Source information:
This 114-nucleotide RNA sequence from Loxodonta africana belongs to the Rfam family "Potassium channel RNA editing signal". Rfam 15.1 lists 14,095 matches to the family in 1,000 species. Rfam classes the family as a cis-regulatory element. The organism belongs to Loxodonta, within Eukaryota.

RNA sequence: CCCAGUUAUGGAGACAUGGUGCCCAGUACCAUUGCUGGUAAAAUUUUUGGAUCCAUCUGCUCACUCAGUGGCGUCUUGGUUAUUGCCCUGCCUGUGCCAGUUAUUGUGUCCAAC
Numbered sequence: 001c002c003c004a005g006u007u008a009u010g011g012a013g014a015c016a017u018g019g020u021g022c023c024c025a026g027u028a029c030c031a032u033u034g035c036u037g038g039u040a041a042a043a044u045u046u047u048u049g050g051a052u053c054c055a056u057c058u059g060c061u062c063a064c065u066c067a068g069u070g071g072c073g074u075c076u077u078g079g080u081u082a083u084u085g086c087c088c089u090g091c092c093u094g095u096g097c098c099a100g101u102u103a104u105u106g107u108g109u110c111c112a113a114c
Stems, first nucleotide, its partner, number of pairs: 005110001007108005013102003018097001021095002037077002040074001050062002
Dot-bracket structure: ....(.(((((.(((..(..((..............((.(.........((.........))...........).))................)).)..))).))))).)....